Rfam assigns this 127-nucleotide RNA from Nicotiana attenuata to the family "mir-172 microRNA precursor family". On this family, see Mette et al., Plant Physiol 2002: "Short RNAs can identify new candidate transposable element families in Arabidopsis". Rfam describes the family as follows. mir-172 has been experimentally verified in Arabidopsis thaliana. This family is thought to target mRNAs coding for APETALA2-like transcription factors. The mature sequence is excised from the 3' arm of the hairpin.

RNA sequence: UUACUUGCAGCUGCAGCAUCAUCAAGAUUCACAUAGAAAUCAUGUGGAGCAGAAAAUAUAUUUCUAAAAAUCUGCCCCCUAAGUUUUUUGAACGUGAGAAUCUUGAUGAUGCUGCAUCAGCAAAUGA
Number, nucleotide and partner (000 for none) at each position: 001u000002u000003a000004c000005u000006u000007g000008c000009a000010g118011c000012u116013g115014c114015a113016g112017c111018a110019u109020c108021a107022u106023c105024a104025a103026g102027a101028u100029u099030c098031a000032c096033a095034u000035a000036g000037a000038a000039a000040u000041c000042a000043u000044g000045u000046g000047g000048a000049g000050c000051a000052g000053a000054a000055a000056a000057u000058a000059u000060a000061u000062u000063u000064c000065u000066a000067a000068a000069a000070a000071u000072c000073u000074g000075c000076c000077c000078c000079c000080u000081a000082a000083g000084u000085u000086u000087u000088u000089u000090g000091a000092a000093c000094g000095u033096g032097a000098g030099a029100a028101u027102c026103u025104u024105g023106a022107u021108g020109a019110u018111g017112c016113u015114g014115c013116a012117u000118c010119a000120g000121c000122a000123a000124a000125u000126g000127a000
A search with the family's covariance model found it, with a score of 86 bits. The source organism's lineage runs through Eukaryota, Pentapetalae, asterids, Solanales and Nicotiana.